Shown here is a 448-nucleotide part of an RNA from Salinigranum rubrum, a member of the family "Archaeal large subunit ribosomal RNA". Rfam links the family to the GO terms ribosome and structural constituent of ribosome. It scores 2817 bits against the family's covariance model. A reference for the family is Yusupov et al. (2001), "Crystal structure of the ribosome at 5.5 A resolution", Science.
[Rfam]
RNA sequence: CCAGUCGAAACAUGUCGAAGCAUGACCUCAGCAGAGAUAGUACGCGAGGUAGAGCGACCGAUUGGGAGACCCGCCUCCGAGAGGAGUCGGCCUCCCUGUCGAACUCCGAACUUGCGUACGUCGCAGAAGCUGGGAGUCCGGUGUCCCGGGGUAAGCUUGGGCACCGUGAGGGAGACAACCCAGAGGUAGGUUAAGGACCCCAAAUGUGGAUUAAGUGCGACCGAAGAUUGUCUCGAGCCCUAAACAGCCGGGAGGUGAGCUUAGAAGCAGCUACCCUCUAAGAAAAGCGUAACAGCUUACCGGCCGAGGUUCGAGGCGUCGAAAAUGAUCGGGGCUCAAAUCCACUUCCGAGACCUACCAGUCCUCACCAGAGGAACCUCGUAGACUGGCGUUCUGUACGGGUGGAAGCACGGGUGAGAACUCGUGUGGACCGCACAGAAACGAAAAU
Numbered sequence: 001c002c003a004g005u006c007g008a009a010a011c012a013u014g015u016c017g018a019a020g021c022a023u024g025a026c027c028u029c030a031g032c033a034g035a036g037a038u039a040g041u042a043c044g045c046g047a048g049g050u051a052g053a054g055c056g057a058c059c060g061a062u063u064g065g066g067a068g069a070c071c072c073g074c075c076u077c078c079g080a081g082a083g084g085a086g087u088c089g090g091c092c093u094c095c096c097u098g099u100c101g102a103a104c105u106c107c108g109a110a111c112u113u114g115c116g117u118a119c120g121u122c123g124c125a126g127a128a129g130c131u132g133g134g135a136g137u138c139c140g141g142u143g144u145c146c147c148g149g150g151g152u153a154a155g156c157u158u159g160g161g162c163a164c165c166g167u168g169a170g171g172g173a174g175a176c177a178a179c180c181c182a183g184a185g186g187u188a189g190g191u192u193a194a195g196g197a198c199c200c201c202a203a204a205u206g207u208g209g210a211u212u213a214a215g216u217g218c219g220a221c222c223g224a225a226g227a228u229u230g231u232c233u234c235g236a237g238c239c240c241u242a243a244a245c246a247g248c249c250g251g252g253a254g255g256u257g258a259g260c261u262u263a264g265a266a267g268c269a270g271c272u273a274c275c276c277u278c279u280a281a282g283a284a285a286a287g288c289g290u291a292a293c294a295g296c297u298u299a300c301c302g303g304c305c306g307a308g309g310u311u312c313g314a315g316g317c318g319u320c321g322a323a324a325a326u327g328a329u330c331g332g333g334g335c336u337c338a339a340a341u342c343c344a345c346u347u348c349c350g351a352g353a354c355c356u357a358c359c360a361g362u363c364c365u366c367a368c369c370a371g372a373g374g375a376a377c378c379u380c381g382u383a384g385a386c387u388g389g390c391g392u393u394c395u396g397u398a399c400g401g402g403u404g405g406a407a408g409c410a411c412g413g414g415u416g417a418g419a420a421c422u423c424g425u426g427u428g429g430a431c432c433g434c435a436c437a438g439a440a441a442c443g444a445a446a447a448u
Base pairs, nucleotide, nucleotide: 001389002388003387004386005385006384011024012023013022014021015020026136027134028133029132030131031130032129036122037121038120040119041118042117043116044115045114046113047112052107053105054104060100061099062098064096065095066094067093068092073088075086076085077084078083140165141164142163143162144161145160146159148158149157170181171180172179185359186358187357188356189355190354191353195349196348197347204346206345207344208343209342210341211340226320227319228318230317231316232315233314234313235312236311237310238309239308247304248303249302250301251300253277254276255275258272259271260270278282283298287296288295360379361378362375363374364373365372366371390443392440393439394438395437396436397435399433400432401431408427409426410425411424412423413422414421415420